[Rfam]
RNA sequence: AAUAGUUGACGAGCAGGAAAGGCACCCUGCGCUCCCUGUAAGGGAACCUGAUAUGAUGGAUACGCCGCCCAUCCAAUUAUU
Numbered sequence: 001a002a003u004a005g006u007u008g009a010c011g012a013g014c015a016g017g018a019a020a021g022g023c024a025c026c027c028u029g030c031g032c033u034c035c036c037u038g039u040a041a042g043g044g045a046a047c048c049u050g051a052u053a054u055g056a057u058g059g060a061u062a063c064g065c066c067g068c069c070c071a072u073c074c075a076a077u078u079a080u081u
Stems, first nucleotide, its partner, number of pairs: 001081008013030005021066003032050001034044003055073005
This 81-nucleotide RNA sequence belongs to the Rfam family "skipping-rope RNA".
Rfam's curators put it in the seed alignment.